Makes More Granules Regulator RNA (mmgR): a 73-nucleotide RNA sequence from Hyphomonas sp. L-53-1-40. It scores 48 bits against the family's covariance model. The family's RNA type in Rfam is small RNA.
[Rfam]
RNA sequence: UGCAGACGCCUCUGGCGUUUCCUCCCUUUGACCUUGGCCGCGCUCUCGUAGCGCGGCCUUUUUUUGGAAGUAA
Numbered sequence: 001u002g003c004a005g006a007c008g009c010c011u012c013u014g015g016c017g018u019u020u021c022c023u024c025c026c027u028u029u030g031a032c033c034u035u036g037g038c039c040g041c042g043c044u045c046u047c048g049u050a051g052c053g054c055g056g057c058c059u060u061u062u063u064u065u066g067g068a069a070g071u072a073a
Stems, first nucleotide, its partner, number of pairs: 008016003036058009